[Rfam]
This 81-nucleotide RNA sequence from Callorhinus ursinus belongs to the Rfam family "Small nucleolar RNA SNORD115".
Rfam 15.1 lists 3,387 matches to the family in 131 species.
A search with the family's covariance model found it, with a score of 85 bits.
By type it is a C/D-box small nucleolar RNA.
Rfam links the family to the GO terms RNA processing and nucleolus.
RNA sequence: GGGUCAAUGAGGAGAGCUCAUAUUGUCUCGAAGAGAGAUGAUGACCUAAAAAUCAUGCUCAAAAGGAUUACACCGAGGCCG
Numbered sequence: 001g002g003g004u005c006a007a008u009g010a011g012g013a014g015a016g017c018u019c020a021u022a023u024u025g026u027c028u029c030g031a032a033g034a035g036a037g038a039u040g041a042u043g044a045c046c047u048a049a050a051a052a053u054c055a056u057g058c059u060c061a062a063a064a065g066g067a068u069u070a071c072a073c074c075g076a077g078g079c080c081g
Stems, first nucleotide, its partner, number of pairs: 002080003005075001008072002